[Rfam]
RNA sequence: GUGCAUUCAGUUGGAAUUGAACCUACAAAUUCGCCAAUUAUGAGUUCGGUGCUUUAACCAUUUAGCCAUGGAUGC
Numbered sequence: 001g002u003g004c005a006u007u008c009a010g011u012u013g014g015a016a017u018u019g020a021a022c023c024u025a026c027a028a029a030u031u032c033g034c035c036a037a038u039u040a041u042g043a044g045u046u047c048g049g050u051g052c053u054u055u056a057a058c059c060a061u062u063u064a065g066c067c068a069u070g071g072a073u074g075c
Stems, first nucleotide, its partner, number of pairs: 003075006010026002013023002040069003044066003048062004

Plastid-ycf2 5UTR RNA: a 75-nucleotide sequence from Punica granatum.
It scores 92 bits against the family's covariance model.
Rfam classes the family as a cis-regulatory element.
Rfam 15.1 lists 3,521 matches to the family in 417 species.
A reference for the family is Richter et al. (2023), "Retrograde signaling in plants: A critical review focusing on the GUN pathway and beyond", Plant Commun.
Plastid ycf2 is a non-coding RNA (ncRNA) recognised in plastids.